RNA sequence: UGAUAUCAGGGUCAAAAGGUCAGAAAGUCGUUCGUGCUUGCACGAUAAGACUUUGGAGCUUGGGACUCGUCAAACAUGAGAAAGUAGCAAUUUACGUAGUAAAUCAGAGGAUUUCGAAUGUUUGAGUAUUGACAGGCCAGAGUCAGGAAAAUUUUUGACUCUGGCCUGCUAUAUA
Numbered sequence: 001u002g003a004u005a006u007c008a009g010g011g012u013c014a015a016a017a018g019g020u021c022a023g024a025a026a027g028u029c030g031u032u033c034g035u036g037c038u039u040g041c042a043c044g045a046u047a048a049g050a051c052u053u054u055g056g057a058g059c060u061u062g063g064g065a066c067u068c069g070u071c072a073a074a075c076a077u078g079a080g081a082a083a084g085u086a087g088c089a090a091u092u093u094a095c096g097u098a099g100u101a102a103a104u105c106a107g108a109g110g111a112u113u114u115c116g117a118a119u120g121u122u123u124g125a126g127u128a129u130u131g132a133c134a135g136g137c138c139a140g141a142g143u144c145a146g147g148a149a150a151a152u153u154u155u156u157g158a159c160u161c162u163g164g165c166c167u168g169c170u171a172u173a174u175a
Stems, first nucleotide, its partner, number of pairs: 001175002003172003007168001010067004016061003020057002024054006031047001032045005070125008080115004088107001090104006134167015
Notes
Rfam assigns this 175-nucleotide RNA sequence to the family "Clostridiales-1 RNA". It is annotated as a small RNA.